About this RNA:
This 82-nucleotide RNA sequence from Culex quinquefasciatus belongs to the Rfam family "mir-263 microRNA precursor family". The source organism's lineage runs through Eukaryota, Protostomia, Mandibulata, Culicidae and Culex pipiens complex.

RNA sequence: UUUGUACACGUAAUGGCACUGGAAGAAUUCACGGGUAUGAUUUAAUAUCCCCGUGUUCUGGCAGUGGCAUCCCUGGUACAAG
Dot-bracket structure: ..(((((..(..(((.((.((.(.((...(((((................))))).)))..)).)).)))..)..)))))..
It scores 70 bits against the family's covariance model. Rfam links the family to the GO terms RISC complex and miRNA-mediated post-transcriptional gene silencing. A reference for the family is Li et al. (2009), "Direct sequencing and expression analysis of a large number of miRNAs in Aedes aegypti and a multi-species survey of novel mosquito miRNAs", BMC Genomics.